[Rfam]
RNA sequence: GAGGUAUGAGGAAAACAUCUGAAUCAGUCUGAUCCAACUCUGACCUCAGCAAACCA
Number, nucleotide and partner (000 for none) at each position: 001g047002a046003g045004g044005u000006a000007u000008g000009a000010g000011g000012a000013a000014a000015a000016c000017a000018u000019c000020u000021g000022a000023a000024u000025c000026a000027g000028u000029c000030u000031g000032a000033u000034c000035c000036a000037a000038c000039u000040c000041u000042g000043a000044c004045c003046u002047c001048a000049g000050c000051a000052a000053a000054c000055c000056a000
Description
Rfam assigns this 56-nucleotide RNA sequence from Cavia porcellus to the family "Small nucleolar RNA SNORD19". Taxonomically the source falls in Cavia (Eukaryota, Mammalia, Glires, Caviidae). The family has 22 seed sequences and 1,431 matches in Rfam 15.1. Pairs were carried over by alignment from the consensus structure. Gene Ontology terms of the family: nucleolus and RNA processing.